[Rfam]
c-di-AMP riboswitch aptamer (ydaO/yuaA leader): a 132-nucleotide sequence from Micromonospora sp. HM5-17. The pairing is the family consensus, mapped onto this sequence. Rfam describes the family as follows. This family represents a conserved RNA structure found upstream of the ydaO and yuaA genes in Bacillus subtilis and related genes in other bacteria.
RNA sequence: CGCUGAUCGCCGCCUAAUCGCCGCGUGGCGAGCCGGGGACCCAGGUUCCUGGGGUGAAUCCGCGACAGCGGUAGGGACAACUUCCAUCCCGAACCCGUCAGCUAACCCGGUCGGCGGCCGACGGAAGGGAUA
Number, nucleotide and partner (000 for none) at each position: 001c000002g000003c000004u000005g000006a000007u000008c000009g000010c000011c116012g115013c114014c113015u000016a000017a000018u031019c030020g029021c000022c000023g000024c000025g000026u000027g000028g000029c020030g019031a018032g111033c110034c109035g108036g107037g106038g000039a000040c000041c000042c051043a050044g000045g000046u000047u000048c000049c000050u043051g042052g096053g095054g094055u000056g000057a000058a000059u000060c071061c070062g069063c068064g000065a000066c000067a000068g063069c062070g061071g060072u000073a000074g090075g089076g088077a087078c000079a000080a000081c000082u000083u000084c000085c000086a000087u077088c076089c075090c074091g000092a000093a000094c054095c053096c052097g000098u000099c000100a000101g000102c000103u000104a000105a000106c037107c036108c035109g034110g033111u032112c000113g014114g013115c012116g011117g000118c000119c000120g000121a000122c000123g000124g000125a000126a000127g000128g000129g000130a000131u000132a000